Description
Shown here is a 53-nucleotide sequence, a member of the family "Streptococcus sRNA SpF59 (ldcC RNA)".
[Rfam]
RNA sequence: CGACCCUUCCCUUCGGGGGAAUGACGGCCACGGACAGCCGGGUCGACUGCCGA
Numbered sequence: 001c002g003a004c005c006c007u008u009c010c011c012u013u014c015g016g017g018g019g020a021a022u023g024a025c026g027g028c029c030a031c032g033g034a035c036a037g038c039c040g041g042g043u044c045g046a047c048u049g050c051c052g053a
Base pairs, nucleotide, nucleotide: 001045002044003043004042005041007021008020009019010018011017

A reference for the family is Mann et al. (2012), "Control of virulence by small RNAs in Streptococcus pneumoniae", PLoS Pathog. Rfam classes the family as a small RNA. The base pairs follow the family's consensus structure, which was predicted with mfold.